[Rfam]
RNA sequence: UGACAAAUUGAAUAUUGCAUCCAUAUAUUCUCGAUAAUAGGGUUCGAGAGUUUCUACACAAAGGCCGUAAAUCUUUGGACUAUGGGUGAAUCCUUAGUAACC
Numbered sequence: 001u002g003a004c005a006a007a008u009u010g011a012a013u014a015u016u017g018c019a020u021c022c023a024u025a026u027a028u029u030c031u032c033g034a035u036a037a038u039a040g041g042g043u044u045c046g047a048g049a050g051u052u053u054c055u056a057c058a059c060a061a062a063g064g065c066c067g068u069a070a071a072u073c074u075u076u077g078g079a080c081u082a083u084g085g086g087u088g089a090a091u092c093c094u095u096a097g098u099a100a101c102c
Stems, first nucleotide, its partner, number of pairs: 018088008029049006059077006

A member of the RNA family "Purine riboswitch aptamer" from Clostridiales bacterium oral taxon 876, 102 nucleotides long. For this family Rfam cites "Riboswitches Control Fundamental Biochemical Pathways in Bacillus subtilis and Other Bacteria" (Mandal et al., Cell, 2003). A search with the family's covariance model found it, with a score of 79 bits. The source organism's lineage runs through Bacteria, Bacillati, Bacillota, Clostridia and Clostridiales bacterium oral taxon 876.